[Rfam]
RNA sequence: UUUAGGAGGAACCGUCAAGAACGUAGUUCUUGCUUGAAAUCGGUUUCGACGACUUGCCGUCUGGCGCAUGUGAGGGGGCACUACCUUUA
Number, nucleotide and partner (000 for none) at each position: 001u000002u000003u000004a000005g000006g000007a000008g047009g046010a045011a044012c043013c042014g000015u000016c032017a031018a030019g029020a028021a027022c000023g000024u000025a000026g000027u021028u020029c019030u018031u017032g016033c000034u000035u000036g000037a000038a000039a000040u000041c000042g013043g012044u011045u010046u009047c008048g000049a000050c000051g000052a000053c000054u000055u000056g079057c078058c077059g000060u075061c074062u000063g000064g071065c070066g000067c000068a000069u000070g065071u064072g000073a000074g061075g060076g000077g058078g057079c056080a000081c000082u000083a000084c000085c000086u000087u000088u000089a000
RNA: GA-cis RNA